[Rfam]
RNA: tRNA
RNA sequence: GAGCCGUUAGCUCAGUCGGUAGAGCAUCUGACUUUUAAUCAGAGGGUCAACAGUUCGAACCUGUUACGGCUCA
Dot-bracket structure: (((((((..((((........)))).(((((.......))))).....(((((.......)))))))))))).